[Rfam]
Rfam assigns this 94-nucleotide RNA from Camellia sinensis to the family "tRNA". The family's RNA type in Rfam is transfer RNA. Rfam describes the family as follows. Transfer RNA (tRNA) molecules are approximately 80 nucleotides in length. Their secondary structure includes four short double-helical elements and three loops (D, anti-codon, and T loops). Further hydrogen bonds mediate the characteristic L-shaped molecular structure. tRNAs have two regions of fundamental functional importance: the anti-codon, which is responsible for specific mRNA codon recognition, and the 3' end, to which the tRNAs corresponding amino acid is attached (by aminoacyl-tRNA synthetases). tRNAs cope with the degeneracy of the genetic code in two manners: having more than one tRNA (with a specific anti-codon) for a particular amino acid; and 'wobble' base-pairing, i.e. permitting non-standard base-pairing at the 3rd anti-codon position. A search with the family's covariance model found it, with a score of 51 bits. Taxonomically the source falls in Camellia sinensis (Eukaryota, Streptophytina, Embryophyta, Camellia).
RNA sequence: GGGAAUGUAGCUCAAAUGGUAGAGCUCUCAUACUUGCUUCAUAAUUACUUGAGCUUAGUAUGAGUAGAUCAAGGUUCAAAUCCUUGCAUUCUCA
Numbered sequence: 001g002g003g004a005a006u007g008u009a010g011c012u013c014a015a016a017u018g019g020u021a022g023a024g025c026u027c028u029c030a031u032a033c034u035u036g037c038u039u040c041a042u043a044a045u046u047a048c049u050u051g052a053g054c055u056u057a058g059u060a061u062g063a064g065u066a067g068a069u070c071a072a073g074g075u076u077c078a079a080a081u082c083c084u085u086g087c088a089u090u091c092u093c094a
Stems, first nucleotide, its partner, number of pairs: 001093007010025004027064008070086005